[Rfam]
Nucleotides: 134
Stems, first nucleotide, its partner, number of pairs: 003059006010053001013050002016045005022039001024037003061072001063070002078120004082112004086107007
Number, partner (000 for none) and nucleotide at each position: 001000u002000u003059g004058c005057a006056c007055a008054g009000a010053g011000a012000a013050c014049a015000c016045c017044c018043a019042a020041g021000u022039g023000u024037g025036c026035u027000u028000u029000g030000u031000c032000u033000g034000u035026a036025g037024u038000u039022c040000c041020c042019u043018u044017g045016g046000c047000c048000u049014u050013g051000a052000c053010u054008c055007u056006g057005u058004g059003c060000u061072a062000a063070a064069g065000u066000c067000u068000g069064u070063u071000c072061u073000u074000u075000u076000c077000c078120u079119c080118u081117g082112c083111a084110u085109u086107g087106a088105a089104a090103g091102g092101a093000g094000u095000a096000c097000u098000g099000u100000g101092u102091c103090c104089u105088u106087u107086u108000a109085a110084a111083u112082g113000u114000a115000u116000u117081c118080a119079g120078a121000a122000a123000a124000u125000c126000a127000a128000c129000a130000c131000a132000u133000c134000g
This 134-nucleotide sequence from Mesocricetus auratus belongs to the Rfam family "Small nucleolar RNA SNORA22". The family has 31 seed sequences and 883 matches in Rfam 15.1. ACA22 is a member of the H/ACA class of snoRNA that guide the sites of modification of uridines to pseudouridines. Pairs were carried over by alignment from the consensus structure, which was predicted with RNAfold. The family's RNA type in Rfam is H/ACA-box small nucleolar RNA. A search with the family's covariance model found it, with a score of 121 bits. Gene Ontology terms of the family: RNA processing and nucleolus.